[Rfam]
RNA sequence: CGGCGAGGCCUCUCUGUCCGUUAUCCAUGGGGGCACUCGGUCAUACUGUGGGUCCAAUGCGUGACCUUAGACGCGUGUCGUCAGUAGUAGGAUGUGAGGACGGGUUAGAUGCCCA
Numbered sequence: 001c002g003g004c005g006a007g008g009c010c011u012c013u014c015u016g017u018c019c020g021u022u023a024u025c026c027a028u029g030g031g032g033g034c035a036c037u038c039g040g041u042c043a044u045a046c047u048g049u050g051g052g053u054c055c056a057a058u059g060c061g062u063g064a065c066c067u068u069a070g071a072c073g074c075g076u077g078u079c080g081u082c083a084g085u086a087g088u089a090g091g092a093u094g095u096g097a098g099g100a101c102g103g104g105u106u107a108g109a110u111g112c113c114c115a
Stems, first nucleotide, its partner, number of pairs: 001020003008034006036098004040093003044089004050067005070082004102114004
Shown here is a 115-nucleotide RNA sequence from Neobacillus cucumis, a member of the family "epsC RNA". The family's RNA type in Rfam is cis-regulatory element. A search with the family's covariance model found it, with a score of 89 bits. Lineage of the source: Bacteria > Bacillati > Bacillota > Bacilli > Neobacillus. The base pairs follow the family's consensus structure, which is taken from published work.